[Rfam]
Annotation: The record is an 80-nucleotide RNA from Alligator mississippiensis, which matches "Mammalian CPEB3 ribozyme" in Rfam. The mammalian CPEB3 ribozyme is a self cleaving RNA located in the second intron of the CPEB3 gene which belongs to a family of genes regulating messenger RNA polyadenylation. This ribozyme is highly conserved and found only in mammals. The CPEB3 ribozyme is structurally and biochemically related to the human hepatitis delta virus (HDV) ribozyme and the HDV ribozyme is proposed to have arisen from the human transcriptome. There is currently only one other known self cleaving ribozyme in mammals, the CoTC motif. Pairs were carried over by alignment from the consensus structure, which is taken from published work.
RNA sequence: AGGGGUUGCAAGGUUGAUGCCACAGCAGAAGCGCUCAUAGUGCAGCCCUGUCAGAGUCCAACAAAUCUGCAAAUUCUGCU
Numbered sequence: 001a002g003g004g005g006u007u008g009c010a011a012g013g014u015u016g017a018u019g020c021c022a023c024a025g026c027a028g029a030a031g032c033g034c035u036c037a038u039a040g041u042g043c044a045g046c047c048c049u050g051u052c053a054g055a056g057u058c059c060a061a062c063a064a065a066u067c068u069g070c071a072a073a074u075u076c077u078g079c080u
Stems, first nucleotide, its partner, number of pairs: 012048002019046002024080007031043003052069004057064001